The family of this 81-nucleotide RNA from Muraenolepis orangiensis is "mir-26 microRNA precursor family". The family has 82 seed sequences and 2,251 matches in Rfam 15.1. It scores 61 bits against the family's covariance model. The organism belongs to Muraenolepis, within Eukaryota.

[Rfam]
RNA sequence: CUUGGGUCUGUUUCAAGUAAUCCAGGAUAGGCUUGUUGAACCAGAAGAGGCCUAUUCAGGGUGACUUGGGUCAGAAACUGG
Dot-bracket structure: .(.(..((((.(.(((((.(((..(((((((((...............)))))))))..))).))))).).))))..).).